Rhizobiales sRNA Atu_C8: a 122-nucleotide RNA from Mesorhizobium sp. L-8-10. By type it is a small RNA. A search with the family's covariance model found it, with a score of 101 bits.
RNA sequence: GCCCAUGAAAACGGUACUCAUUCUCGUAGGAAGGCGCAUGGGCAAGGCGGUGUAGCCGCCGGGCGACAGCCGACCAUGCGCAGAAAGCAGGCUCCCUCGGGGGCCUUUUUUUAUUACCCAAA
Numbered sequence: 001g002c003c004c005a006u007g008a009a010a011a012c013g014g015u016a017c018u019c020a021u022u023c024u025c026g027u028a029g030g031a032a033g034g035c036g037c038a039u040g041g042g043c044a045a046g047g048c049g050g051u052g053u054a055g056c057c058g059c060c061g062g063g064c065g066a067c068a069g070c071c072g073a074c075c076a077u078g079c080g081c082a083g084a085a086a087g088c089a090g091g092c093u094c095c096c097u098c099g100g101g102g103g104c105c106u107u108u109u110u111u112u113a114u115u116a117c118c119c120a121a122a
Stems, first nucleotide, its partner, number of pairs: 029118002032115001034081008046060005063070002087107001089106007